RNA sequence: GGCCCAAUUUCGAAUUACAGUAGAAUAGUAGGAUCAGCUGACCUUACUAAUCUACUCUACUUCAGAUAUGGGCCC
Numbered sequence: 001g002g003c004c005c006a007a008u009u010u011c012g013a014a015u016u017a018c019a020g021u022a023g024a025a026u027a028g029u030a031g032g033a034u035c036a037g038c039u040g041a042c043c044u045u046a047c048u049a050a051u052c053u054a055c056u057c058u059a060c061u062u063c064a065g066a067u068a069u070g071g072g073c074c075c
Base pairs, nucleotide, nucleotide: 001074002073003072004071005070006069009066012063013062014061016059017058019056020055021054022053023052026049027048028047029046030045032043034041035040

Rfam assigns this 75-nucleotide RNA from Haemonchus placei to the family "mir-5928 microRNA precursor family". Rfam 15.1 lists 1,672 matches to the family in 12 species. Lineage of the source: Eukaryota > Opisthokonta > Protostomia > Ecdysozoa > Haemonchus. The base pairs follow the family's consensus structure, which was predicted with RNAalifold. A search with the family's covariance model found it, with a score of 63 bits.